[Rfam]
RNA sequence: GGUCAUGAGCGCCAGCGCGAAGCCCCGGCUCGCUGGCCGGCAACCCUCCUCGUCGUGGGGUGCCCCGGGUGAUGACCAGACCAGCGGCCGACCGGCCCUGGUAAGGACGACCC
Numbered sequence: 001g002g003u004c005a006u007g008a009g010c011g012c013c014a015g016c017g018c019g020a021a022g023c024c025c026c027g028g029c030u031c032g033c034u035g036g037c038c039g040g041c042a043a044c045c046c047u048c049c050u051c052g053u054c055g056u057g058g059g060g061u062g063c064c065c066c067g068g069g070u071g072a073u074g075a076c077c078a079g080a081c082c083a084g085c086g087g088c089c090g091a092c093c094g095g096c097c098c099u100g101g102u103a104a105g106g107a108c109g110a111c112c113c
Base pairs, nucleotide, nucleotide: 001077002076003075004074009038011037012036013035014034015033016032021030022029039064040063041062044060045059046058048055080102081101082100083099084098086097087096088095089094
Rfam assigns this 113-nucleotide RNA from Quadrisphaera sp. DSM 44207 to the family "SAM (S-adenosyl methionine) riboswitch aptamer". Rfam's curators write: SAM-IV is a mRNA element that regulates gene expression via direct sensing of S-adenosylmethionine (SAM or AdoMet). The organism belongs to Quadrisphaera, within Bacteria. A search with the family's covariance model found it, with a score of 94 bits. The base pairs follow the family's consensus structure, which is taken from published work. The family has 40 seed sequences and 2,360 matches in Rfam 15.1.